[Rfam]
RNA sequence: UGGAAAUGAUGAAAUAGAGAUAAUUGGGUGUCAAAUGUAUGAUUGGAUAUUUUUAAGAUGUAAGUUAAGUAAUCUAGUUCUAAGAUUUUAUAGAUUCUUAAUAGAGUGUGUGUGUGUGUGUGUGCGUGCAUGUGCCUGUUUGUGGAGGCUAUGAAAAGGGGGCACUGACUGGUGAUGCUGAUAUUGGAGUGCAUCUGAGGCUGUUGUAGAAACACAUGGGUUGUUGAUUACAACAUUGCCGAUGAUUAUUACCCAAGAACAGCUCACCGAAGUAGCCUGGCACCCUAAAAUCUCUAACAGGUUCAUUAAAUGUGGUCCUGUGAUCUGAUCCAA
Numbered sequence: 001u002g003g004a005a006a007u008g009a010u011g012a013a014a015u016a017g018a019g020a021u022a023a024u025u026g027g028g029u030g031u032c033a034a035a036u037g038u039a040u041g042a043u044u045g046g047a048u049a050u051u052u053u054u055a056a057g058a059u060g061u062a063a064g065u066u067a068a069g070u071a072a073u074c075u076a077g078u079u080c081u082a083a084g085a086u087u088u089u090a091u092a093g094a095u096u097c098u099u100a101a102u103a104g105a106g107u108g109u110g111u112g113u114g115u116g117u118g119u120g121u122g123u124g125c126g127u128g129c130a131u132g133u134g135c136c137u138g139u140u141u142g143u144g145g146a147g148g149c150u151a152u153g154a155a156a157a158g159g160g161g162g163c164a165c166u167g168a169c170u171g172g173u174g175a176u177g178c179u180g181a182u183a184u185u186g187g188a189g190u191g192c193a194u195c196u197g198a199g200g201c202u203g204u205u206g207u208a209g210a211a212a213c214a215c216a217u218g219g220g221u222u223g224u225u226g227a228u229u230a231c232a233a234c235a236u237u238g239c240c241g242a243u244g245a246u247u248a249u250u251a252c253c254c255a256a257g258a259a260c261a262g263c264u265c266a267c268c269g270a271a272g273u274a275g276c277c278u279g280g281c282a283c284c285c286u287a288a289a290a291u292c293u294c295u296a297a298c299a300g301g302u303u304c305a306u307u308a309a310a311u312g313u314g315g316u317c318c319u320g321u322g323a324u325c326u327g328a329u330c331c332a333a
Stems, first nucleotide, its partner, number of pairs: 001332004202235008211225004215220001
The family of this 333-nucleotide sequence from Rousettus aegyptiacus is "Small Cajal body-specific RNA 7". The base pairs follow the family's consensus structure. The literature on the family includes a 2002 paper in EMBO J by Darzacq et al., "Cajal body-specific small nuclear RNAs: a novel class of 2'-O-methylation and pseudouridylation guide RNAs". A search with the family's covariance model found it, with a score of 350 bits. It is annotated as a small Cajal body RNA.